[Rfam]
RNA: sodF sRNA
RNA sequence: ACGCCUCCUGCCUCGUGAUCGUCUUCUCACCGUUCACACAGGGCAGGCGGAUGAGAAAGGGGCGGCCCCGCGAGGACGUGACUCGCGGGGCCGCCCC
Numbered sequence: 001a002c003g004c005c006u007c008c009u010g011c012c013u014c015g016u017g018a019u020c021g022u023c024u025u026c027u028c029a030c031c032g033u034u035c036a037c038a039c040a041g042g043g044c045a046g047g048c049g050g051a052u053g054a055g056a057a058a059g060g061g062g063c064g065g066c067c068c069c070g071c072g073a074g075g076a077c078g079u080g081a082c083u084c085g086c087g088g089g090g091c092c093g094c095c096c097c
Stems, first nucleotide, its partner, number of pairs: 002049002007047007015037004021031001059097016
Dot-bracket structure: .((...(((((((.((((..(.........)..))))...))))))))).........((((((((((((((((.......))))))))))))))))